[Rfam]
RNA sequence: UGAGUAAGAUAAAUGAUCGCGGCUGUGUAUGCCAAAAGGCUACAGGUGAGGAAAGUCCGGGCUUCAUAGGGCAGGAUGCCGGAUAACGUCCGGUAGAGGCAACUCUAAGGCUAGUGCAACAGAGAUAUACCGCCAGAAGUUUCUGGUAAGGGUGGAAAGGUAGUGUAAGAGACUACCUCUUGUUUGGUAACAAACAGGGUAUCUGUAAACCCCAUCCGAAGCAAGACCGAACAGAAAGCGUAAAGUGGCCCGCUUGCUUUCGGGUAGGUCGCUCGAUCAUUUUGGUAACAAAAUGGCUAGAUAGAUGAUCAUUCAUGACAUAACCCGGCUUAUCGUCUUGCUCAUAUA
Number, nucleotide and partner (000 for none) at each position: 001u344002g343003a342004g341005u340006a339007a338008g337009a336010u335011a333012a313013a312014u311015g310016a309017u308018c307019g000020c048021g047022g000023c045024u044025g043026u042027g041028u000029a000030u000031g000032c000033c000034a000035a000036a000037a000038g000039g000040c000041u027042a026043c025044a024045g023046g000047u021048g020049a000050g000051g000052a000053a331054a330055g329056u000057c328058c327059g326060g325061g324062c221063u220064u219065c218066a000067u000068a000069g251070g250071g249072c248073a000074g217075g216076a215077u214078g213079c093080c092081g091082g090083a089084u000085a000086a000087c000088g000089u083090c082091c081092g080093g079094u108095a106096g105097a104098g103099g000100c000101a000102a000103c098104u097105c096106u095107a000108a094109g212110g211111c000112u000113a000114g210115u209116g206117c205118a204119a000120c000121a000122g000123a000124g000125a000126u000127a000128u000129a000130c151131c150132g147133c146134c145135a144136g143137a142138a000139g000140u000141u000142u137143c136144u135145g134146g133147u132148a000149a000150g131151g130152g000153u000154g000155g000156a000157a000158a000159g177160g176161u175162a174163g173164u172165g000166u000167a000168a000169g000170a000171g000172a164173c163174u162175a161176c160177c159178u201179c198180u197181u196182g195183u194184u193185u192186g191187g000188u000189a000190a000191c186192a185193a184194a183195c182196a181197g180198g179199g000200u000201a178202u000203c000204u118205g117206u116207a000208a000209a115210c114211c110212c109213c078214a077215u076216c075217c074218g065219a064220a063221g062222c000223a000224a000225g270226a269227c268228c267229g000230a000231a000232c000233a000234g261235a260236a259237a258238g257239c256240g000241u000242a000243a255244a254245g253246u252247g000248g072249c071250c070251c069252g246253c245254u244255u243256g239257c238258u237259u236260u235261c234262g000263g000264g000265u000266a000267g228268g227269u226270c225271g000272c000273u000274c000275g000276a000277u296278c295279a294280u293281u292282u291283u290284g289285g000286u000287a000288a000289c284290a283291a282292a281293a280294u279295g278296g277297c000298u000299a000300g000301a000302u000303a000304g000305a000306u000307g018308a017309u016310c015311a014312u013313u012314c000315a000316u000317g000318a000319c000320a000321u000322a000323a000324c061325c060326c059327g058328g057329c055330u054331u053332a000333u011334c000335g010336u009337c008338u007339u006340g005341c004342u003343c002344a001345u000346a000347u000348a000
RNA: Bacterial RNase P class A
Organism: Clostridiales bacterium CHKCI001